[Rfam]
RNA: Bacterial large signal recognition particle RNA
Organism: Isachenkonia alkalipeptolytica
RNA sequence: CUGUGCUAGAUGGGGAGGUAGCGGUGCCUUGUAACCUGCAAUCCGCUAUAGCAGGAUCGAAGCCUCACCGAGGAUUGCUCACUGUAGAGCAGCCCUUAGUAAGUGGUGUUGACCGUUGGGUCUUACGCAACGAAAGCUCAUGAAUCCCGUCAGGUCCGGAAGGAAGCAGCGGUAAGUGAUCCCUUUCGUGUGUCGUAGGGGUGCCUAAUUCGAGCUAACUGCUAAGGUAACGUCUAUGGUGACGGUUCGAAGUGAGGUGCACAG
Numbered sequence: 001c002u003g004u005g006c007u008a009g010a011u012g013g014g015g016a017g018g019u020a021g022c023g024g025u026g027c028c029u030u031g032u033a034a035c036c037u038g039c040a041a042u043c044c045g046c047u048a049u050a051g052c053a054g055g056a057u058c059g060a061a062g063c064c065u066c067a068c069c070g071a072g073g074a075u076u077g078c079u080c081a082c083u084g085u086a087g088a089g090c091a092g093c094c095c096u097u098a099g100u101a102a103g104u105g106g107u108g109u110u111g112a113c114c115g116u117u118g119g120g121u122c123u124u125a126c127g128c129a130a131c132g133a134a135a136g137c138u139c140a141u142g143a144a145u146c147c148c149g150u151c152a153g154g155u156c157c158g159g160a161a162g163g164a165a166g167c168a169g170c171g172g173u174a175a176g177u178g179a180u181c182c183c184u185u186u187c188g189u190g191u192g193u194c195g196u197a198g199g200g201g202u203g204c205c206u207a208a209u210u211c212g213a214g215c216u217a218a219c220u221g222c223u224a225a226g227g228u229a230a231c232g233u234c235u236a237u238g239g240u241g242a243c244g245g246u247u248c249g250a251a252g253u254g255a256g257g258u259g260c261a262c263a264g
Stems, first nucleotide, its partner, number of pairs: 001264006009058003012030004017025001019023001035055005063257006072248005079242010095226006103219002105216003115209007122199006128190002131188005136181001138179004147172004155164003